RNA sequence: CGGGGUGACGCCCGGGUCCUCACUCCGAAUGUGAGAGGAAUUUUUGCGCGGGUACAGGUCGCCCCUGGGUGCCCCGCUUACUUCGCGGGAUGCCCGGGUGCCGUGAUCUGCCCG
Numbered sequence: 001c002g003g004g005g006u007g008a009c010g011c012c013c014g015g016g017u018c019c020u021c022a023c024u025c026c027g028a029a030u031g032u033g034a035g036a037g038g039a040a041u042u043u044u045u046g047c048g049c050g051g052g053u054a055c056a057g058g059u060c061g062c063c064c065c066u067g068g069g070u071g072c073c074c075c076g077c078u079u080a081c082u083u084c085g086c087g088g089g090a091u092g093c094c095c096g097g098g099u100g101c102c103g104u105g106a107u108c109u110g111c112c113c114g
Stems, first nucleotide, its partner, number of pairs: 001014004019035005049114005056109007064098002067095005073089005
RNA: U12 minor spliceosomal RNA
Organism: Phainopepla nitens